[Rfam]
RNA sequence: UCUAGGAAGCGGAACAAAGAGAGGGUGUAAGAGUAGUGGGACCGAGAACACGGAGGAAAGACUAAUCAGUUUGGGAUUUUCCUAAUGCCUCUCAUUCCUAUCGUUCUUAGGCGCUCCUUCAUAUUCCUUUUUGUU
Numbered sequence: 001u002c003u004a005g006g007a008a009g010c011g012g013a014a015c016a017a018a019g020a021g022a023g024g025g026u027g028u029a030a031g032a033g034u035a036g037u038g039g040g041a042c043c044g045a046g047a048a049c050a051c052g053g054a055g056g057a058a059a060g061a062c063u064a065a066u067c068a069g070u071u072u073g074g075g076a077u078u079u080u081c082c083u084a085a086u087g088c089c090u091c092u093c094a095u096u097c098c099u100a101u102c103g104u105u106c107u108u109a110g111g112c113g114c115u116c117c118u119u120c121a122u123a124u125u126c127c128u129u130u131u132u133g134u135u
Stems, first nucleotide, its partner, number of pairs: 009126001011124001013122001016119002021116003026111001028109007037100005044093004049087002053083001055082006
Dot-bracket structure: ........(.(.(..((...(((..(.(((((((..(((((..((((.((..(.((((((................)))))))..))..))))..)))))..))))))).)..))).))..).).).........
RNA: MIR2118 microRNA precursor family
Organism: Hordeum vulgare